RNA sequence: CGACCCCGUGCGGGAGAGUCCCCAUCCAUGAGAUGGGGCGCCGAAGGAGCAACCCUCCCCGGAAUCUCUCAGGCACCCGGUACCGCUCGGGCGAG
Numbered sequence: 001c002g003a004c005c006c007c008g009u010g011c012g013g014g015a016g017a018g019u020c021c022c023c024a025u026c027c028a029u030g031a032g033a034u035g036g037g038g039c040g041c042c043g044a045a046g047g048a049g050c051a052a053c054c055c056u057c058c059c060c061g062g063a064a065u066c067u068c069u070c071a072g073g074c075a076c077c078c079g080g081u082a083c084c085g086c087u088c089g090g091g092c093g094a095g
Stems, first nucleotide, its partner, number of pairs: 006090003010086004020038007040074003043070002047068003053062002

This 95-nucleotide RNA sequence from Nonomuraea soli belongs to the Rfam family "Glycine riboswitch aptamer".
The source organism's lineage runs through Bacteria, Bacillati, Streptosporangiales, Streptosporangiaceae and Nonomuraea.